[Rfam]
RNA sequence: UAAUUUGACUCGGGGUGCCCUUCUACGUGAAGGCUGAGAAAUACCCGUACCACCUGAUCUGGAUAAUGCCAGCGUAGGGAAGUCAGGUGACUGUUAA
Numbered sequence: 001u002a003a004u005u006u007g008a009c010u011c012g013g014g015g016u017g018c019c020c021u022u023c024u025a026c027g028u029g030a031a032g033g034c035u036g037a038g039a040a041a042u043a044c045c046c047g048u049a050c051c052a053c054c055u056g057a058u059c060u061g062g063a064u065a066a067u068g069c070c071a072g073c074g075u076a077g078g079g080a081a082g083u084c085a086g087g088u089g090a091c092u093g094u095u096a097a
Base pairs, nucleotide, nucleotide: 006085007084008083009082010081011047012046013045014044016041017034018033019032021030053078054077055076056075059072060071061070062069
TPP riboswitch aptamer (THI element): a 97-nucleotide RNA from Enterobacter sp. 638. Rfam's curators write: Vitamin B(1) in its active form thiamin pyrophosphate (TPP) is an essential coenzyme that is synthesised by coupling of pyrimidine and thiazole moieties in bacteria. The previously detected thiamin-regulatory element, thi box was extended, resulting in a new, highly conserved RNA secondary structure, the THI element, which is widely distributed in eubacteria and also occurs in some archaea. Analysis of operon structures identified a large number of new candidate thiamin-regulated genes, mostly transporters, in various prokaryotic organisms. The THI element is a riboswitch that directly binds to TPP to regulate gene expression through a variety of mechanisms in archaea, bacteria and eukaryotes. through a variety of mechanisms in archaea, bacteria and eukaryotes. Tandem TPP riboswitches have been reported where both TPP riboswitches respond independently to TPP. The structure of TPP riboswitch has been reported for Escherichia coli and Arabidopsis thaliana.